[Rfam]
RNA sequence: AGAUAUGAGGGCGAUCUGACUGUGACAUCUGUCACUCUAUUGAUCACCAGGGUUGAUUCGGCUGAUCUAGCUAGCUAGGCAGGAGUCCCCUUCCUCCCUCACCACUCCAUGUGCUUCCCUCUUGAAGCUGUGCACUCGGUGAAAGGAUGCCAUCUUCAGUCAAGGGUAUACAAGUAGCUGCACUCCCCUGCUAGAACCUCCAAACAAGCUCUCAAGGUCCAUUUGUAAAAGAACAUAGGGUAGUCAAGCUUCCAAGACUCCAGACACAUCUGAAUGAGUUGCUGCAUGUGGCAGUCUGCCUUUCUUU
Number, nucleotide and partner (000 for none) at each position: 001a000002g107003a106004u000005a000006u101007g100008a099009g098010g097011g096012c000013g093014a092015u000016c000017u000018g090019a000020c000021u000022g000023u000024g087025a086026c085027a000028u083029c082030u081031g080032u079033c078034a000035c074036u073037c070038u069039a068040u000041u000042g067043a066044u065045c064046a000047c061048c060049a000050g000051g000052g000053u000054u000055g000056a000057u000058u000059c000060g048061g047062c000063u000064g045065a044066u043067c042068u039069a038070g037071c000072u000073a036074g035075c000076u000077a000078g033079g032080c031081a030082g029083g028084a000085g026086u025087c024088c000089c000090c018091u000092u014093c013094c000095u000096c011097c010098c009099u008100c007101a006102c000103c000104a000105c000106u003107c002108c000109a000110u000111g000112u000113g000114c000115u000116u147117c146118c000119c000120u142121c141122u139123u138124g137125a136126a000127g135128c000129u000130g000131u000132g000133c000134a000135c127136u125137c124138g123139g122140u000141g121142a120143a000144a000145g000146g117147a116148u000149g000150c000151c000152a000153u000154c000155u000156u000157c000158a000159g000160u000161c000162a000163a000164g000165g000166g000167u000168a000169u000170a000171c000172a000173a000174g000175u000176a000177g249178c248179u247180g000181c000182a000183c243184u242185c000186c240187c239188c238189u237190g236191c000192u000193a000194g000195a000196a000197c000198c231199u230200c000201c000202a000203a000204a226205c225206a224207a223208g222209c000210u000211c000212u000213c000214a000215a000216g000217g000218u000219c000220c000221a000222u208223u207224u206225g205226u204227a000228a000229a000230a199231g198232a000233a000234c000235a000236u190237a189238g188239g187240g186241u000242a184243g183244u000245c000246a000247a179248g178249c177250u000251u000252c000253c000254a000255a000256g000257a000258c000259u000260c000261c000262a000263g000264a000265c000266a000267c000268a000269u000270c000271u000272g307273a306274a305275u000276g302277a301278g300279u000280u298281g295282c294283u293284g292285c291286a000287u000288g000289u000290g000291g285292c284293a283294g282295u281296c000297u000298g280299c000300c278301u277302u276303u000304c000305u274306u273307u272
Description: The family of this 307-nucleotide RNA sequence is "7SK RNA". A reference for the family is Wassarman and Steitz (1991), "Structural analyses of the 7SK ribonucleoprotein (RNP), the most abundant human small RNP of unknown function", Mol Cell Biol. The family's consensus secondary structure is taken from published work. About the family: 7SK was discovered as an abundant small nuclear RNA in the mid-70s but a possible function has only recently been suggested. Two independent studies have found that 7SK RNA binds the CDK9/cyclin T complex (known as elongation factor P-TEFb). P-TEFb activates transcription by phosphorylating the C-terminal domain of RNA polymerase II. This process is negatively regulated by the 7SK RNP. The secondary structure of 7SK RNA shown here was proposed by Wasserman and Steitz on the basis of chemical modification and enzymatic cleavage experiments. This family contains a number of annotated pseudogenes and 7SK derived repeats. The sequence is in the family's curated seed alignment. The family's RNA type in Rfam is non-coding RNA gene.